[Rfam]
RNA sequence: UGAUGUCCCUCACCCACCCCUGAAGAUCCCAGGUGGGCGAGGGGAUAGCCAGAGGGAUC
Numbered sequence: 001u002g003a004u005g006u007c008c009c010u011c012a013c014c015c016a017c018c019c020c021u022g023a024a025g026a027u028c029c030c031a032g033g034u035g036g037g038c039g040a041g042g043g044g045a046u047a048g049c050c051a052g053a054g055g056g057a058u059c
Stems, first nucleotide, its partner, number of pairs: 006044006013037006025059006